[Rfam]
RNA: Enterobacterial sRNA STnc540
RNA sequence: UCAGAUCCAGGCAUAACAUCCAUCAGGGUGUAUUGCGGCAGAUACGCUGCCAUCCCGAAAGUAGAUCAGCGGGAUGACAGCGUAUCUGUUAGCCUGAAAGAUGACUCGUAUAACUAAAAAGGCCGCAUUGCGGCCUUUUUUCUUUCAAGUAAAGGAUACCCACCGUAAAAUCACGCUACCUCUUUUCAGCUGAAUGGAUAAC
Numbered sequence: 001u002c003a004g005a006u007c008c009a010g011g012c013a014u015a016a017c018a019u020c021c022a023u024c025a026g027g028g029u030g031u032a033u034u035g036c037g038g039c040a041g042a043u044a045c046g047c048u049g050c051c052a053u054c055c056c057g058a059a060a061g062u063a064g065a066u067c068a069g070c071g072g073g074a075u076g077a078c079a080g081c082g083u084a085u086c087u088g089u090u091a092g093c094c095u096g097a098a099a100g101a102u103g104a105c106u107c108g109u110a111u112a113a114c115u116a117a118a119a120a121g122g123c124c125g126c127a128u129u130g131c132g133g134c135c136u137u138u139u140u141u142c143u144u145u146c147a148a149g150u151a152a153a154g155g156a157u158a159c160c161c162a163c164c165g166u167a168a169a170a171u172c173a174c175g176c177u178a179c180c181u182c183u184u185u186u187c188a189g190c191u192g193a194a195u196g197g198a199u200a201a202c
Stems, first nucleotide, its partner, number of pairs: 009095004016031006037090013051076007096146006116140011